Overview:
Shown here is a 77-nucleotide RNA from Cricetulus griseus, a member of the family "Small nucleolar RNA SNORD83". The family's consensus secondary structure was predicted with PFOLD. The literature on the family includes a 2000 paper in Nucleic Acids Res by Jady and Kiss, "Characterisation of the U83 and U84 small nucleolar RNAs: two novel 2'-O-ribose methylation guide RNAs that lack complementarities to ribosomal RNAs". The organism belongs to Cricetulus, within Eukaryota.

RNA sequence: GCCAGAUGAUGUUUGUUUGACACAGGAGCACUUGCGUGCAAGGACGACUCGUGACCUAUCACCCAUGACUGAUGGCU
Numbered sequence: 001g002c003c004a005g006a007u008g009a010u011g012u013u014u015g016u017u018u019g020a021c022a023c024a025g026g027a028g029c030a031c032u033u034g035c036g037u038g039c040a041a042g043g044a045c046g047a048c049u050c051g052u053g054a055c056c057u058a059u060c061a062c063c064c065a066u067g068a069c070u071g072a073u074g075g076c077u
Stems, first nucleotide, its partner, number of pairs: 001076004028039004